RNA sequence: UUCCUCUGAAGAACUUUAUUUAGAGGUCUGGAUCACAAAAAUAUAUUGAAGGCAUAGAAUUCAGAGGAA
Numbered sequence: 001u002u003c004c005u006c007u008g009a010a011g012a013a014c015u016u017u018a019u020u021u022a023g024a025g026g027u028c029u030g031g032a033u034c035a036c037a038a039a040a041a042u043a044u045a046u047u048g049a050a051g052g053c054a055u056a057g058a059a060u061u062c063a064g065a066g067g068a069a
Stems, first nucleotide, its partner, number of pairs: 001069004

This 69-nucleotide sequence from Tricholaema leucomelas belongs to the Rfam family "Small nucleolar RNA SNORD66". snoRNA HBII-142 is part of the C/D family of snoRNAs. On this family, see Huttenhofer et al., EMBO J 2001: "RNomics: an experimental approach that identifies 201 candidates for novel, small, non-messenger RNAs in mouse". The family's RNA type in Rfam is C/D-box small nucleolar RNA. It scores 32 bits against the family's covariance model. The family's consensus secondary structure was predicted with RNAalifold.